[Rfam]
RNA: MIR159 microRNA precursor family
RNA sequence: UUGCAGACAAGGGAGCUCCCUUCAGUCCAAGCAAAGACAGAGUAGGAUCCAACUUAGCUCCUGCACCAUUCACUCACUUACCAAGCAAACCCCUUAAUCAUUCUCUUUACUUGGUAUUUGUAUGAAUGGGCCAGCAGCUAACUCAACCCCACAGCCAUCCAUGAGUGGACUGAAGGAAGCUCUCUUUUCAGAUCAC
Numbered sequence: 001u002u003g004c005a006g007a008c009a010a011g012g013g014a015g016c017u018c019c020c021u022u023c024a025g026u027c028c029a030a031g032c033a034a035a036g037a038c039a040g041a042g043u044a045g046g047a048u049c050c051a052a053c054u055u056a057g058c059u060c061c062u063g064c065a066c067c068a069u070u071c072a073c074u075c076a077c078u079u080a081c082c083a084a085g086c087a088a089a090c091c092c093c094u095u096a097a098u099c100a101u102u103c104u105c106u107u108u109a110c111u112u113g114g115u116a117u118u119u120g121u122a123u124g125a126a127u128g129g130g131c132c133a134g135c136a137g138c139u140a141a142c143u144c145a146a147c148c149c150c151a152c153a154g155c156c157a158u159c160c161a162u163g164a165g166u167g168g169a170c171u172g173a174a175g176g177a178a179g180c181u182c183u184c185u186u187u188u189c190a191g192a193u194c195a196c
Base pairs, nucleotide, nucleotide: 013182014181015180016179017178019176020175023172024171025170026169027168028167029166036159058137059136061134062133063132067128068127069126070125075120